This 127-nucleotide sequence from Paenalicyclobacillus mengziensis belongs to the Rfam family "PyrR binding site". Rfam classes the family as a cis-regulatory element. This family represents the PyrR binding site and terminator structure. This RNA structure is found upstream of a variety of genes involved in pyrimidine biosynthesis and transport. The alignment also includes a portion of the antiterminator structure. It scores 56 bits against the family's covariance model. The base pairs follow the family's consensus structure, which is taken from published work. Taxonomically the source falls in Paenalicyclobacillus (Bacteria, Bacillati, Bacillota, Caryophanales). Rfam links the family to the GO terms pyrimidine nucleobase transport and pyrimidine nucleobase biosynthetic process.

RNA sequence: ACUGCCUUUAAACCAGUCCCGUGAGAUUGGAAAGGAGUCGGAAUAGGAUUGGGGGGUCUGUACCCAUCUUUGGUACACAUUCCCCGUCAAACGGCUGCUUUCCCGGCGAAAGCAGCCGUUUUCUUAU
Numbered sequence: 001a002c003u004g005c006c007u008u009u010a011a012a013c014c015a016g017u018c019c020c021g022u023g024a025g026a027u028u029g030g031a032a033a034g035g036a037g038u039c040g041g042a043a044u045a046g047g048a049u050u051g052g053g054g055g056g057u058c059u060g061u062a063c064c065c066a067u068c069u070u071u072g073g074u075a076c077a078c079a080u081u082c083c084c085c086g087u088c089a090a091a092c093g094g095c096u097g098c099u100u101u102c103c104c105g106g107c108g109a110a111a112g113c114a115g116c117c118g119u120u121u122u123c124u125u126a127u
Stems, first nucleotide, its partner, number of pairs: 003037001005035005013030006051085007059077006089121013